[Rfam]
RNA: SAM (S-adenosyl methionine) riboswitch aptamer
Organism: Nocardia camponoti
RNA sequence: GGUCACGAGUUCCAGCGUCAAGCCCCGGCUUGCUGGGCGGCAACCCUCCACGGCGGCGGGGUGCUCCGGGUGACGACCGGAUGGAGCUAUCGCAGUAGCUUUGCGGCGGCGGCGU
Numbered sequence: 001g002g003u004c005a006c007g008a009g010u011u012c013c014a015g016c017g018u019c020a021a022g023c024c025c026c027g028g029c030u031u032g033c034u035g036g037g038c039g040g041c042a043a044c045c046c047u048c049c050a051c052g053g054c055g056g057c058g059g060g061g062u063g064c065u066c067c068g069g070g071u072g073a074c075g076a077c078c079g080g081a082u083g084g085a086g087c088u089a090u091c092g093c094a095g096u097a098g099c100u101u102u103g104c105g106g107c108g109g110c111g112g113c114g115u
Stems, first nucleotide, its partner, number of pairs: 001078004009038001011037006021030002039065003044061003048056002082103009
Dot-bracket structure: ((((....(.((((((....((......)).)))))))(((..(((.((.....))..))).))).........))))...(((((((((....)))))))))............